[Rfam]
RNA sequence: CAGAAACUUUUUUGACAAAUGGAUAAGACUUCAGUCUUAGUGUAUACAAGUUCUUGAAAAAAAUGGAGCAAUAGCCAAUUUCUUUGUUCUAUCAAAACUACGGUAUUGCUCAUCU
Numbered sequence: 001c002a003g004a005a006a007c008u009u010u011u012u013u014g015a016c017a018a019a020u021g022g023a024u025a026a027g028a029c030u031u032c033a034g035u036c037u038u039a040g041u042g043u044a045u046a047c048a049a050g051u052u053c054u055u056g057a058a059a060a061a062a063a064u065g066g067a068g069c070a071a072u073a074g075c076c077a078a079u080u081u082c083u084u085u086g087u088u089c090u091a092u093c094a095a096a097a098c099u100a101c102g103g104u105a106u107u108g109c110u111c112a113u114c115u
Base pairs, nucleotide, nucleotide: 008023009022010021012019061115063113064112066111067110068109069108070107071106072105073104078099081097083096084095085094

The family of this 115-nucleotide sequence from Nyssa sinensis is "Plastid-psbA-1 3UTR RNA". Rfam classes the family as a cis-regulatory element. Lineage of the source: Eukaryota > Euphyllophyta > Gunneridae > asterids > Nyssa. Rfam's curators write: Plastid psbA-1 is a non-coding RNA (ncRNA) present in plastids. It was identified in inverted repeat sequences in the 3 prime untranslate region (3UTR) of photosystem II quinone-binding protein (psbA). The family's consensus secondary structure was predicted with LocARNA.